[Rfam]
RNA: Fluoride riboswitch aptamer (crcB RNA motif)
Organism: Acidaminobacter hydrogenoformans
RNA sequence: AAAUGAAUUGGCGAUGGUGUUCGCCGUUAAAUGCCAAGGGCUGAUGACACCUGUCGAAGU
Numbered sequence: 001a002a003a004u005g006a007a008u009u010g011g012c013g014a015u016g017g018u019g020u021u022c023g024c025c026g027u028u029a030a031a032u033g034c035c036a037a038g039g040g041c042u043g044a045u046g047a048c049a050c051c052u053g054u055c056g057a058a059g060u
Base pairs, nucleotide, nucleotide: 010025011024012023013022016051017050018049019048020047021046033041034040035039